The record is a 161-nucleotide sequence from Xylanimonas allomyrinae, which matches "c-di-AMP riboswitch aptamer (ydaO/yuaA leader)" in Rfam.
Its family is annotated with cyclic-di-AMP binding and regulation of gene expression in the Gene Ontology.

RNA sequence: ACGGACUGACCUCCGAAGGCAGGGGCGGGGGACCCACUUGCGGGCUCCCGGAGACGGAGCCCUUGGGGUGAAGCCUUGGGCGGCCUGCGGGCCGGCCGAGGCCGGGUGCAUCUCCUGCCCGAACCCGACAGCUCACCUCGUUGGCGGCAUGGAGAGGUAGA
Numbered sequence: 001a002c003g004g005a006c007u008g009a010c011c012u013c014c015g016a017a018g019g020c021a022g023g024g025g026c027g028g029g030g031g032a033c034c035c036a037c038u039u040g041c042g043g044g045c046u047c048c049c050g051g052a053g054a055c056g057g058a059g060c061c062c063u064u065g066g067g068g069u070g071a072a073g074c075c076u077u078g079g080g081c082g083g084c085c086u087g088c089g090g091g092c093c094g095g096c097c098g099a100g101g102c103c104g105g106g107u108g109c110a111u112c113u114c115c116u117g118c119c120c121g122a123a124c125c126c127g128a129c130a131g132c133u134c135a136c137c138u139c140g141u142u143g144g145c146g147g148c149a150u151g152g153a154g155a156g157g158u159a160g161a
Base pairs, nucleotide, nucleotide: 006144007143011024012023013022025141026140027139028138029137030136035065036064066126067125068124074101075100076099077098078097079096104120105119106118107117